[Rfam]
RNA sequence: AUAGAACCUAGGUGGAGAUGCACAGUGUUCAGAUAAUACAGCACUCGUCUAUUGAUGACGUUUGGUCUGGGCUGCACCUGAUUCCUCCUCCUGACCCAGUGCUUCUGUCCUAACACACAGAGCAGGAGACGUAGUCGCGGCACCGCUUGUUCGAGUGCUGCUAGACACAGUGGCCGCUUGGUGCAGCCCUGAUACGCACCAAACACCGACCGUGAGAGUCGUGUGUGCCAGUCCCUUUCGGAUAGCUCGAAAAUGA
Numbered sequence: 001a002u003a004g005a006a007c008c009u010a011g012g013u014g015g016a017g018a019u020g021c022a023c024a025g026u027g028u029u030c031a032g033a034u035a036a037u038a039c040a041g042c043a044c045u046c047g048u049c050u051a052u053u054g055a056u057g058a059c060g061u062u063u064g065g066u067c068u069g070g071g072c073u074g075c076a077c078c079u080g081a082u083u084c085c086u087c088c089u090c091c092u093g094a095c096c097c098a099g100u101g102c103u104u105c106u107g108u109c110c111u112a113a114c115a116c117a118c119a120g121a122g123c124a125g126g127a128g129a130c131g132u133a134g135u136c137g138c139g140g141c142a143c144c145g146c147u148u149g150u151u152c153g154a155g156u157g158c159u160g161c162u163a164g165a166c167a168c169a170g171u172g173g174c175c176g177c178u179u180g181g182u183g184c185a186g187c188c189c190u191g192a193u194a195c196g197c198a199c200c201a202a203a204c205a206c207c208g209a210c211c212g213u214g215a216g217a218g219u220c221g222u223g224u225g226u227g228c229c230a231g232u233c234c235c236u237u238u239c240g241g242a243u244a245g246c247u248c249g250a251a252a253a254u255g256a
Stems, first nucleotide, its partner, number of pairs: 014088004023080003027077002030074003037069002040050002057067003089127005130196004134166003137161004144153002170189001172188003176184002203226004207221004236252004241248001